[Rfam]
RNA sequence: UAAGAUAAAGCCAAACCUGCCGGACGACGGGGACGGAAAGCUACGGGUCUAUCGGAUAGCCGGGCUGCCUUAC
Numbered sequence: 001u002a003a004g005a006u007a008a009a010g011c012c013a014a015a016c017c018u019g020c021c022g023g024a025c026g027a028c029g030g031g032g033a034c035g036g037a038a039a040g041c042u043a044c045g046g047g048u049c050u051a052u053c054g055g056a057u058a059g060c061c062g063g064g065c066u067g068c069c070u071u072a073c
Stems, first nucleotide, its partner, number of pairs: 003070002011036002016031004021026001034059001039066004044062003047057003
Record summary:
A member of the RNA family "c-di-GMP-I-GGC riboswitch aptamer" from Desulforhopalus singaporensis, 73 nucleotides long. Its family is annotated with cyclic-di-GMP binding in the Gene Ontology. The family has 40 seed sequences and 1,298 matches in Rfam 15.1. Taxonomically the source falls in Desulforhopalus (Bacteria, Desulfobulbia, Desulfobulbales, Desulfocapsaceae).